[Rfam]
RNA sequence: AAAGCAGGUUGCAAUUACAGUGCUUCAUCUUGUGGGAGUACUGCCAUUACCCUGCUAAGAGUAAAGCUUGUACUACAUUCUGGUUUCACUUUGUGUUGGUGGAAUCAUUGAUUCGUGGUAUGUACAAGU
Numbered sequence: 001a002a003a004g005c006a007g008g009u010u011g012c013a014a015u016u017a018c019a020g021u022g023c024u025u026c027a028u029c030u031u032g033u034g035g036g037a038g039u040a041c042u043g044c045c046a047u048u049a050c051c052c053u054g055c056u057a058a059g060a061g062u063a064a065a066g067c068u069u070g071u072a073c074u075a076c077a078u079u080c081u082g083g084u085u086u087c088a089c090u091u092u093g094u095g096u097u098g099g100u101g102g103a104a105u106c107a108u109u110g111a112u113u114c115g116u117g118g119u120a121u122g123u124a125c126a127a128g129u
Base pairs, nucleotide, nucleotide: 003056004055005054006053007052008051018043019042020041021040022039023038024037025036026035069122070121071120072119073118074117075116076115081107082106083105084104085103086102087101088100089099090098
Dot-bracket structure: ..((((((.........(((((((((........))))))))).......))))))............((((((((....((((((((((.......)))))))))).......)))))))).......